[Rfam]
Nucleotides: 061
Base pairs, nucleotide, nucleotide: 001059002058003057004056005055006054007053010050012048014046016044017043019041020040021039022038
Number, partner (000 for none) and nucleotide at each position: 001059u002058c003057u004056u005055c006054a007053u008000u009000u010050c011000g012048c013000a014046u015000a016044c017043u018000c019041u020040c021039u022038c023000a024000u025000c026000a027000c028000u029000c030000u031000g032000a033000c034000c035000a036000g037000c038022g039021a040020g041019a042000u043017a044016g045000c046014a047000c048012g049000c050010g051000a052000a053007a054006u055005g056004a057003a058002g059001a060000g061000a
The record is a 61-nucleotide RNA from Pristionchus pacificus, which matches "mir-8364 microRNA precursor family" in Rfam. Pairs were carried over by alignment from the consensus structure, which was predicted with RNAalifold.